[Rfam]
RNA sequence: AGCCUUAUAUUUUAGAUAUAAGGGUCGGAGAUUGCUGUCAACUGUGACUCGAAUAAUUCUAUCCAGAAUAUCGAA
Numbered sequence: 001a002g003c004c005u006u007a008u009a010u011u012u013u014a015g016a017u018a019u020a021a022g023g024g025u026c027g028g029a030g031a032u033u034g035c036u037g038u039c040a041a042c043u044g045u046g047a048c049u050c051g052a053a054u055a056a057u058u059c060u061a062u063c064c065a066g067a068a069u070a071u072c073g074a075a
Stems, first nucleotide, its partner, number of pairs: 003023008054070002057068004
The family of this 75-nucleotide sequence is "RT-6 RNA". It is one of the family's seed sequences. The family's RNA type in Rfam is small RNA.